[Rfam]
RNA sequence: CAGGACGGGCAGUGAUGCAAGUUCAUGUCUUACAAGAAGUCAGCAGAGGACAUAGUAUUCCGGAGCAGGAACAGCACGGAAGAAGGUC
Numbered sequence: 001c002a003g004g005a006c007g008g009g010c011a012g013u014g015a016u017g018c019a020a021g022u023u024c025a026u027g028u029c030u031u032a033c034a035a036g037a038a039g040u041c042a043g044c045a046g047a048g049g050a051c052a053u054a055g056u057a058u059u060c061c062g063g064a065g066c067a068g069g070a071a072c073a074g075c076a077c078g079g080a081a082g083a084a085g086g087u088c
Base pairs, nucleotide, nucleotide: 001027002026004023005022006021009018010017011016040047041046049088050087051086058081059080060079061078062077
Group II catalytic intron D1-D4-1: an 88-nucleotide sequence from Petrimonas mucosa. Rfam links the family to the GO term Group II intron splicing. The organism belongs to Petrimonas, within Bacteria. A search with the family's covariance model found it, with a score of 58 bits. Pairs were carried over by alignment from the consensus structure. Rfam's curators write: Group II introns are found in rRNA, tRNA and mRNA of organelles in fungi, plants and protists, and also in mRNA in bacteria.